[Rfam]
RNA: DUF805b RNA
Organism: Sphingobacteriales bacterium
RNA sequence: AACGUGGAAGCCGAAAAGCGUAGAAUAGAGUAGGAA
Numbered sequence: 001a002a003c004g005u006g007g008a009a010g011c012c013g014a015a016a017a018g019c020g021u022a023g024a025a026u027a028g029a030g031u032a033g034g035a036a
Stems, first nucleotide, its partner, number of pairs: 002021004011034002